[Rfam]
The family of this 66-nucleotide sequence from Paraburkholderia diazotrophica is "Fluoride riboswitch aptamer (crcB RNA motif)". The match comes from Rfam's covariance-model search (53 bits). Taxonomically the source falls in Paraburkholderia (Bacteria, Pseudomonadati, Pseudomonadota, Betaproteobacteria).
RNA sequence: UCGGUUCACGGAGAUGGCAUUCCUCCCGUAACCGCCGGUUUGCCGGCUAAUGAUGCCUACGGUUCC
Numbered sequence: 001u002c003g004g005u006u007c008a009c010g011g012a013g014a015u016g017g018c019a020u021u022c023c024u025c026c027c028g029u030a031a032c033c034g035c036c037g038g039u040u041u042g043c044c045g046g047c048u049a050a051u052g053a054u055g056c057c058u059a060c061g062g063u064u065c066c
Stems, first nucleotide, its partner, number of pairs: 010026004016057006034047004
Dot-bracket structure: .........[[[[..((((((.]]]].......((((......))))....)))))).........